[Rfam]
RNA sequence: GAAAGUAAAGGAGCAAUAACCAAUUUCUUGUUCUAUCAAGAGGGCGGUAUUGCUCCUUU
Numbered sequence: 001g002a003a004a005g006u007a008a009a010g011g012a013g014c015a016a017u018a019a020c021c022a023a024u025u026u027c028u029u030g031u032u033c034u035a036u037c038a039a040g041a042g043g044g045c046g047g048u049a050u051u052g053c054u055c056c057u058u059u
Stems, first nucleotide, its partner, number of pairs: 007059012025042006
A member of the RNA family "Plastid-psbA-4 3UTR RNA", 59 nucleotides long. The family's RNA type in Rfam is cis-regulatory element. From the family's description: Plastid psbA-4 is a non-coding RNA (ncRNA) present in plastids. It was identified in inverted repeat sequences in the 3 prime untranslate region (3UTR) of photosystem II quinone-binding protein (psbA). For this family Rfam cites "Retrograde signaling in plants: A critical review focusing on the GUN pathway and beyond" (Richter et al., Plant Commun, 2023). Its Rfam clan is "Plastid-psbA 3UTR RNA clan".